Rfam assigns this 69-nucleotide RNA to the family "tRNA".

Nucleotides: 069
Stems, first nucleotide, its partner, number of pairs: 001068007010022004024040005045061005
Number, partner (000 for none) and nucleotide at each position: 001068a002067a003066g004065a005064g006063c007062u008000u009000a010022a011021g012020u013019u014000a015000a016000a017000u018000a019013a020012a021011c022010u023000g024040a025039a026038a027037g028036c029000c030000u031000u032000c033000a034000a035000a036028g037027c038026u039025u040024u041000u042000u043000a044000u045061a046060a047059g048058a049057a050000u051000g052000g053000a054000a055000a056000c057049u058048u059047c060046u061045u062007a063006g064005c065004u066003c067002u068001u069000g
Rfam classes the family as a transfer RNA. The family's consensus secondary structure is taken from published work.